[Rfam]
RNA sequence: CCACCGGUGCGCGACUGGCGAUAGGCGCGGCCCCUCCCCAAGAGGCGAGCCGCCGCUGACGUGGAUGACCACUGGGAAGCGCACCGCCCGCGGCUCGAGCCCGGGCGAUCAGCCGUUCGCCUGGGCAGCCCUU
Number, nucleotide and partner (000 for none) at each position: 001c000002c000003a000004c000005c086006g085007g084008u083009g082010c081011g080012c079013g000014a000015c076016u075017g121018g120019c119020g118021a117022u000023a000024g000025g000026c000027g000028c000029g000030g000031c000032c000033c000034c000035u000036c000037c000038c000039c000040a000041a000042g000043a000044g000045g000046c000047g000048a000049g000050c000051c000052g000053c000054c000055g000056c000057u000058g000059a000060c000061g072062u071063g070064g069065a000066u000067g000068a000069c064070c063071a062072c061073u000074g000075g016076g015077a000078a000079g012080c011081g010082c009083a008084c007085c006086g005087c000088c000089c000090g000091c000092g000093g000094c000095u000096c000097g000098a000099g000100c000101c000102c000103g000104g000105g000106c000107g000108a000109u000110c128111a000112g126113c125114c124115g000116u000117u021118c020119g019120c018121c017122u000123g000124g114125g113126c112127a000128g110129c000130c000131c000132u000133u000